Record summary:
The record is a 120-nucleotide RNA sequence from Lysobacter antibioticus, which matches "SAH (S-adenosyl-L-homocysteine) riboswitch aptamer" in Rfam. It scores 59 bits against the family's covariance model. Its family is annotated with regulation of gene expression and S-adenosylhomocysteine metabolic process in the Gene Ontology.
RNA sequence: CCCGCCGAGGGGCGCUGCGACCGUCAUCCGCGGAACUUUCCGCAAAGCCCGUACCCGCUACGGACUUCGAGAAUGACGGCCAGGCUCGGCGAGGCGUAGUCCCAACGGCGCCCGGUUUGA
Number, nucleotide and partner (000 for none) at each position: 001c000002c000003c091004g090005c089006c088007g087008a086009g000010g000011g000012g000013c000014g000015c000016u000017g000018c000019g000020a000021c079022c078023g077024u076025c075026a074027u000028c000029c000030g000031c000032g000033g000034a000035a000036c000037u000038u000039u000040c000041c000042g000043c000044a000045a000046a000047g000048c000049c000050c000051g000052u000053a000054c000055c000056c000057g000058c000059u000060a000061c000062g000063g000064a000065c000066u000067u000068c000069g000070a000071g000072a000073a000074u026075g025076a024077c023078g022079g021080c000081c000082a000083g000084g000085c000086u008087c007088g006089g005090c004091g003092a000093g000094g000095c000096g000097u000098a000099g000100u000101c000102c000103c000104a000105a000106c000107g000108g000109c000110g000111c000112c000113c000114g000115g000116u000117u000118u000119g000120a000